RNA sequence: GGUCAGUGAUGUGAUGGCAUGUAUUAGCUGAAGGUGCAGCUGUUGUGAAUUCUAAAAUUACCCUGAGACCUU
Numbered sequence: 001g002g003u004c005a006g007u008g009a010u011g012u013g014a015u016g017g018c019a020u021g022u023a024u025u026a027g028c029u030g031a032a033g034g035u036g037c038a039g040c041u042g043u044u045g046u047g048a049a050u051u052c053u054a055a056a057a058u059u060a061c062c063c064u065g066a067g068a069c070c071u072u
Stems, first nucleotide, its partner, number of pairs: 001070004
Small nucleolar RNA SNORD45: a 72-nucleotide RNA sequence from Fukomys damarensis.
Lineage of the source: Eukaryota > Dipnotetrapodomorpha > Boreoeutheria > Euarchontoglires > Fukomys.
A search with the family's covariance model found it, with a score of 81 bits.
The family has 11 seed sequences and 1,629 matches in Rfam 15.1.